Nucleotides: 084
Base pairs, nucleotide, nucleotide: 004053006051007050008049009048010047011046012045015042017072018071019070020069021068024039025038026037027036062078063077064076065075
Number, partner (000 for none) and nucleotide at each position: 001000u002000u003000a004053a005000u006051g007050u008049c009048a010047u011046a012045u013000g014000a015042c016000u017072g018071a019070c020069g021068g022000a023000a024039g025038u026037g027036g028000a029000a030000a031000u032000a033000a034000a035000a036027c037026c038025a039024c040000a041000u042015g043000g044000a045012g046011u047010a048009u049008g050007a051006c052000u053004u054000g055000u056000a057000a058000a059000u060000u061000a062078u063077g064076c065075c066000g067000a068021c069020c070019g071018u072017c073000u074000g075065g076064g077063c078062a079000a080000a081000c082000u083000g084000c
Rfam assigns this 84-nucleotide RNA sequence from Clostridium sp. MD294 to the family "ZMP/ZTP riboswitch aptamer (pfl RNA motif)". The match comes from Rfam's covariance-model search (59 bits).